[Rfam]
RNA sequence: GGGACAGGGGGGUCCCCGCCGCCAACGACGGGGCCUGUCCCGGAGGUUGCGCGCACGCGUGGCCACGUGGUUGUCGCUCGGGGGUGAUCGCCG
Numbered sequence: 001g002g003g004a005c006a007g008g009g010g011g012g013u014c015c016c017c018g019c020c021g022c023c024a025a026c027g028a029c030g031g032g033g034c035c036u037g038u039c040c041c042g043g044a045g046g047u048u049g050c051g052c053g054c055a056c057g058c059g060u061g062g063c064c065a066c067g068u069g070g071u072u073g074u075c076g077c078u079c080g081g082g083g084g085u086g087a088u089c090g091c092c093g
Base pairs, nucleotide, nucleotide: 001041002040003039004038005037006036007035008034014033015032016031017030018029020027045064046063047062048061049060050059051058052057